RNA sequence: UUGAACUAUGAUACUGCACUAUAUUCGGUCAGACAAUCCGUUAGUGCUCACAAAACGUUCAUAUAUCAAAUGUUCUUCGAUGAGCUUGAAUGGUUGAGUAACAAUUCAGGAACAGAUACGGAACAUACAAGU
Numbered sequence: 001u002u003g004a005a006c007u008a009u010g011a012u013a014c015u016g017c018a019c020u021a022u023a024u025u026c027g028g029u030c031a032g033a034c035a036a037u038c039c040g041u042u043a044g045u046g047c048u049c050a051c052a053a054a055a056c057g058u059u060c061a062u063a064u065a066u067c068a069a070a071u072g073u074u075c076u077u078c079g080a081u082g083a084g085c086u087u088g089a090a091u092g093g094u095u096g097a098g099u100a101a102c103a104a105u106u107c108a109g110g111a112a113c114a115g116a117u118a119c120g121g122a123a124c125a126u127a128c129a130a131g132u
Stems, first nucleotide, its partner, number of pairs: 002061005016047003026040003070126007085110002089106003
RNA: Small Cajal body specific RNA 8